[Rfam]
Small nucleolar RNA snR48: a 105-nucleotide RNA from Pichia membranifaciens. Clan: SNORD60 clan. Its family is annotated with RNA processing and nucleolus in the Gene Ontology.
RNA sequence: CGAUAGUGAUGAAUUUUUAUGUUUAUUAUAUGUUUUUUCUGGCAUCUCUAAUGUUAGAGCAACAUUCUGUUGUUCAAUGAAUACAACUUUUGACUCUAUCUGAUA
Numbered sequence: 001c002g003a004u005a006g007u008g009a010u011g012a013a014u015u016u017u018u019a020u021g022u023u024u025a026u027u028a029u030a031u032g033u034u035u036u037u038u039c040u041g042g043c044a045u046c047u048c049u050a051a052u053g054u055u056a057g058a059g060c061a062a063c064a065u066u067c068u069g070u071u072g073u074u075c076a077a078u079g080a081a082u083a084c085a086a087c088u089u090u091u092g093a094c095u096c097u098a099u100c101u102g103a104u105a
Stems, first nucleotide, its partner, number of pairs: 058074006